[Rfam]
The family of this 103-nucleotide RNA from Aspergillus terreus is "Small nucleolar RNA Z13/snr52".

Nucleotides: 103
Base pairs, nucleotide, nucleotide: 004101005100025080026079027078028077
Number, partner (000 for none) and nucleotide at each position: 001000c002000a003000a004101g005100g006000u007000c008000a009000c010000a011000u012000g013000a014000u015000g016000a017000a018000a019000u020000a021000u022000a023000u024000u025080c026079g027078g028077a029000u030000g031000u032000a033000a034000a035000c036000u037000c038000a039000c040000a041000g042000a043000c044000c045000u046000g047000u048000u049000c050000u051000g052000a053000a054000u055000g056000c057000g058000c059000a060000a061000a062000a063000a064000c065000c066000a067000u068000g069000u070000g071000g072000a073000u074000a075000u076000u077028u078027c079026c080025g081000u082000u083000g084000c085000c086000u087000u088000c089000c090000u091000u092000c093000u094000g095000a096000u097000u098000g099000a100005u101004c102000g103000u

Rfam classes the family as a C/D-box small nucleolar RNA.